[Rfam]
RNA: PyrR binding site
Organism: Alkalicoccus urumqiensis
RNA sequence: UGAUCCUUUUAAUGCUGUCCCGUGAGGCAGCCAAAGGACGGUGUACAGAAGGUUUUCAGCACUUCUGUAUGUACAGCCGUCCCGACGUAUGACCGGGGCGGCUGUUUUUAU
Numbered sequence: 001u002g003a004u005c006c007u008u009u010u011a012a013u014g015c016u017g018u019c020c021c022g023u024g025a026g027g028c029a030g031c032c033a034a035a036g037g038a039c040g041g042u043g044u045a046c047a048g049a050a051g052g053u054u055u056u057c058a059g060c061a062c063u064u065c066u067g068u069a070u071g072u073a074c075a076g077c078c079g080u081c082c083c084g085a086c087g088u089a090u091g092a093c094c095g096g097g098g099c100g101g102c103u104g105u106u107u108u109u110a111u
Stems, first nucleotide, its partner, number of pairs: 004038006014031006041072011054059001073105012